The family of this 142-nucleotide sequence from Cytobacillus dafuensis is "c-di-AMP riboswitch aptamer (ydaO/yuaA leader)".
[Rfam]
RNA sequence: AUUUCUAAAUCGCUGAAACCAAAUGGUGCGGGGGAACCGUUCUUGUGGAUAGGUACUAAUCCAAGGGGUGAAUCCUAAUAAGGUAGGGCUACUCAAGGCCCGAAUCCGACAGCUAACCUCGUAAGCGUUGAUGAGAAGGAAG
Numbered sequence: 001a002u003u004u005c006u007a008a009a010u011c012g013c014u015g016a017a018a019c020c021a022a023a024u025g026g027u028g029c030g031g032g033g034g035a036a037c038c039g040u041u042c043u044u045g046u047g048g049a050u051a052g053g054u055a056c057u058a059a060u061c062c063a064a065g066g067g068g069u070g071a072a073u074c075c076u077a078a079u080a081a082g083g084u085a086g087g088g089c090u091a092c093u094c095a096a097g098g099c100c101c102g103a104a105u106c107c108g109a110c111a112g113c114u115a116a117c118c119u120c121g122u123a124a125g126c127g128u129u130g131a132u133g134a135g136a137a138g139g140a141a142g
Stems, first nucleotide, its partner, number of pairs: 011127004018027003028122006038065001066107003074083003086101004

The organism belongs to Cytobacillus, within Bacteria. The match comes from Rfam's covariance-model search (98 bits).